The family of this 93-nucleotide sequence from Szabonella alba is "Rhodo-rpoB RNA".
RNA sequence: GGUUCGGGAGCCUUCCGGUGGGACGGGGGGCAUGAAUGGAACCUGAUCCCCCUAUCGCCAGCGGUGCGGCCCCGUAGCCCGACGGGACCGGCA
Number, nucleotide and partner (000 for none) at each position: 001g043002g042003u041004u040005c039006g000007g000008g000009a000010g031011c030012c029013u028014u027015c026016c025017g024018g000019u000020g000021g000022g000023a000024c017025g016026g015027g014028g013029g012030g011031c010032a000033u000034g000035a000036a000037u000038g000039g005040a004041a003042c002043c001044u000045g000046a000047u000048c000049c000050c000051c000052c000053u000054a000055u000056c000057g000058c000059c000060a000061g000062c000063g000064g000065u093066g092067c091068g000069g089070c000071c086072c085073c084074g083075u000076a000077g000078c000079c000080c000081g000082a000083c074084g073085g072086g071087a000088c000089c069090g000091g067092c066093a065
Source information: The organism belongs to Szabonella, within Bacteria. The match comes from Rfam's covariance-model search (74 bits). Rfam classes the family as a cis-regulatory element.